[Rfam]
RNA sequence: UCCCAACCAAUGCUGCGUUUCUUUGCUACACACGACAAGACCCCCGUCUUGUCCUCGGCCCGUCACCCCGACGGCCACCGAGCCCGCAAAUGAGAAAUUCGGAGAAAUCUUCACCUUACCAGCACCCGCUCUCGCUGGGUGCCUGUGGCAUCCACGGGAGCCGGUACUGCCCGUGAGGGCCUGGUGUGAAAGACAAGACACAUCUGCAAUUGGCAUCAGAAACAUCGGGGCGCCGGGACCGUCGGUCUCGUGCGGUUUCCCCAUGGGAGAGUCGUUGCGAAGAUUGUGUGUGCAGCCUGGCCUGCAUGACACUUUAGUGCAAUACGCAGCAUACCAGGUUUCCUUCUUCCCCUCGGGGGAGGGGAAUGGUAUCAUUCGAUUCCGAUUAUUCUGGCUGGGA
Numbered sequence: 001u002c003c004c005a006a007c008c009a010a011u012g013c014u015g016c017g018u019u020u021c022u023u024u025g026c027u028a029c030a031c032a033c034g035a036c037a038a039g040a041c042c043c044c045c046g047u048c049u050u051g052u053c054c055u056c057g058g059c060c061c062g063u064c065a066c067c068c069c070g071a072c073g074g075c076c077a078c079c080g081a082g083c084c085c086g087c088a089a090a091u092g093a094g095a096a097a098u099u100c101g102g103a104g105a106a107a108u109c110u111u112c113a114c115c116u117u118a119c120c121a122g123c124a125c126c127c128g129c130u131c132u133c134g135c136u137g138g139g140u141g142c143c144u145g146u147g148g149c150a151u152c153c154a155c156g157g158g159a160g161c162c163g164g165u166a167c168u169g170c171c172c173g174u175g176a177g178g179g180c181c182u183g184g185u186g187u188g189a190a191a192g193a194c195a196a197g198a199c200a201c202a203u204c205u206g207c208a209a210u211u212g213g214c215a216u217c218a219g220a221a222a223c224a225u226c227g228g229g230g231c232g233c234c235g236g237g238a239c240c241g242u243c244g245g246u247c248u249c250g251u252g253c254g255g256u257u258u259c260c261c262c263a264u265g266g267g268a269g270a271g272u273c274g275u276u277g278c279g280a281a282g283a284u285u286g287u288g289u290g291u292g293c294a295g296c297c298u299g300g301c302c303u304g305c306a307u308g309a310c311a312c313u314u315u316a317g318u319g320c321a322a323u324a325c326g327c328a329g330c331a332u333a334c335c336a337g338g339u340u341u342c343c344u345u346c347u348u349c350c351c352c353u354c355g356g357g358g359g360a361g362g363g364g365a366a367u368g369g370u371a372u373c374a375u376u377c378g379a380u381u382c383c384g385a386u387u388a389u390u391c392u393g394g395c396u397g398g399g400a
Base pairs, nucleotide, nucleotide: 001400002399003398004397007394008393009392012330013329014328015327016326017325018324022090023089024088025087100384101383102382103381104380109282110281111280112279169180170179171178172177183204184203185202186201187200206278207277208276209275212273213272214271228262229261230260331372332371333370334369335368336367
Nuclear RNase P: a 400-nucleotide sequence from Aspergillus terreus.
The match comes from Rfam's covariance-model search (38 bits).
The family's consensus secondary structure is taken from published work.
Rfam's curators write: Ribonuclease P (RNase P) is a ubiquitous endoribonuclease, found in archaea, bacteria and eukarya as well as chloroplasts and mitochondria. Its best characterised activity is the generation of mature 5'-ends of tRNAs by cleaving the 5'-leader elements of precursor-tRNAs.
Gene Ontology terms of the family: ribonuclease P complex, ribonuclease P activity and tRNA processing.
The family's RNA type in Rfam is ribozyme.